Rfam assigns this 81-nucleotide RNA sequence from [Collinsella] massiliensis to the family "aspS RNA".
RNA sequence: GCUGAGCUGCGCGGUCUACGCAGGCUCGGCGGUCUGUACGAAGCCGUCCGUUCCGGCACGGGACGGCACAGAUGAAAAGGA
Numbered sequence: 001g002c003u004g005a006g007c008u009g010c011g012c013g014g015u016c017u018a019c020g021c022a023g024g025c026u027c028g029g030c031g032g033u034c035u036g037u038a039c040g041a042a043g044c045c046g047u048c049c050g051u052u053c054c055g056g057c058a059c060g061g062g063a064c065g066g067c068a069c070a071g072a073u074g075a076a077a078a079g080g081a
Base pairs, nucleotide, nucleotide: 001030002029003028004027005026006025007024008023009021010020011019032073033072034071035070036069037068043067044066045065046064047063048062049061